[Rfam]
RNA sequence: CUCUGUGUUCUUCCACAGCUUUCUUGAACUGCUUAAUUCUCUUAUCUAAUUAUAUAUCGGUCGGAUCUAGCUAGAUUUGGAUGGCUUUACAGCAGUUCAAUAAAGCUGUGGGAAGAUACGGCGA
Numbered sequence: 001c002u003c004u005g006u007g008u009u010c011u012u013c014c015a016c017a018g019c020u021u022u023c024u025u026g027a028a029c030u031g032c033u034u035a036a037u038u039c040u041c042u043u044a045u046c047u048a049a050u051u052a053u054a055u056a057u058c059g060g061u062c063g064g065a066u067c068u069a070g071c072u073a074g075a076u077u078u079g080g081a082u083g084g085c086u087u088u089a090c091a092g093c094a095g096u097u098c099a100a101u102a103a104a105g106c107u108g109u110g111g112g113a114a115g116a117u118a119c120g121g122c123g124a
Stems, first nucleotide, its partner, number of pairs: 003121005013111003017107006024100004029095005
This 124-nucleotide RNA from Daucus carota belongs to the Rfam family "MIR396 microRNA precursor family".
It scores 92 bits against the family's covariance model.
The family has 26 seed sequences and 744 matches in Rfam 15.1.
Rfam links the family to the GO terms RISC complex and miRNA-mediated post-transcriptional gene silencing.
On this family, see Jones-Rhoades and Bartel, Mol Cell 2004: "Computational identification of plant microRNAs and their targets, including a stress-induced miRNA".